[Rfam]
This 80-nucleotide sequence from Callorhinus ursinus belongs to the Rfam family "Epstein-Barr virus stable intronic sequence RNA 2". The literature on the family includes a 2014 paper in RNA Biol by Moss et al., "RNA families in Epstein-Barr virus". The match comes from Rfam's covariance-model search (44 bits). Taxonomically the source falls in Callorhinus (Eukaryota, Opisthokonta, Eutheria, Caniformia). It is annotated as a non-coding RNA gene.
RNA sequence: GGCCCGGGGAAGUGGGGUGGUCUGGGGAGGUGAGAGAGGGCCCUGUCUCACCUCCCCAGACCACCCCACUUCCCCGGGCC
Numbered sequence: 001g002g003c004c005c006g007g008g009g010a011a012g013u014g015g016g017g018u019g020g021u022c023u024g025g026g027g028a029g030g031u032g033a034g035a036g037a038g039g040g041c042c043c044u045g046u047c048u049c050a051c052c053u054c055c056c057c058a059g060a061c062c063a064c065c066c067c068a069c070u071u072c073c074c075c076g077g078g079c080c
Stems, first nucleotide, its partner, number of pairs: 001080009011070002016065020